Shown here is an 86-nucleotide RNA from Drosophila kikkawai, a member of the family "mir-927 microRNA precursor family". The literature on the family includes a 2010 paper in Nat Genet by Berezikov et al., "Evolutionary flux of canonical microRNAs and mirtrons in Drosophila".

[Rfam]
RNA sequence: GGGGCGUUGUAGGGCUUUAGAAUUCCUACGCUUUACCGUGGCAUUCGAAAUUCGGCAAAGCGUUUGGAUUCUGAAACCCUAUGCGU
Dot-bracket structure: ...........(.(.((((((.(((..(((((((.((................)).)))))))..))).)))))).))........

Its family is annotated with miRNA-mediated post-transcriptional gene silencing and RISC complex in the Gene Ontology.